[Rfam]
RNA sequence: GUUUUGCGUUAGGGAUUGCAGUGGAAAUCCUUUUGUGAGGAACGAACAAAAGAUUGGAACGGAAAGCCCGACCCGAU
Numbered sequence: 001g002u003u004u005u006g007c008g009u010u011a012g013g014g015a016u017u018g019c020a021g022u023g024g025a026a027a028u029c030c031u032u033u034u035g036u037g038a039g040g041a042a043c044g045a046a047c048a049a050a051a052g053a054u055u056g057g058a059a060c061g062g063a064a065a066g067c068c069c070g071a072c073c074c075g076a077u
Base pairs, nucleotide, nucleotide: 012069013068014067016065017064021060022059026055027054028053029052032050033049034048035047036046
Dot-bracket structure: ...........(((.((...((...((((..(((((.........))))).))))...))...)).)))........
Shown here is a 77-nucleotide RNA sequence from a Bacteroidia bacterium, a member of the family "Flavo-1 RNA". The family's consensus secondary structure is taken from published work. A search with the family's covariance model found it, with a score of 57 bits. Lineage of the source: Bacteria > Pseudomonadati > Bacteroidota > Bacteroidia.